RNA sequence: GUCACUGCUCUCUCUGAUUCGCUUGGUGCAGGUCGGGAACUGGUUUCGCUUUAAUUAGAUUAAUCAAAUCUGUUUUAGCGAAUCAAUUCCCGCCUUGCAUCAACUGAAUCGGAGAGAGAAAAGUGA
Numbered sequence: 001g002u003c004a005c006u007g008c009u010c011u012c013u014c015u016g017a018u019u020c021g022c023u024u025g026g027u028g029c030a031g032g033u034c035g036g037g038a039a040c041u042g043g044u045u046u047c048g049c050u051u052u053a054a055u056u057a058g059a060u061u062a063a064u065c066a067a068a069u070c071u072g073u074u075u076u077a078g079c080g081a082a083u084c085a086a087u088u089c090c091c092g093c094c095u096u097g098c099a100u101c102a103a104c105u106g107a108a109u110c111g112g113a114g115a116g117a118g119a120a121a122a123g124u125g126a
Base pairs, nucleotide, nucleotide: 013113014112017109018108019107020106023103024102025101026100027099028098029097030096031095032094034092035091036090037089038088041085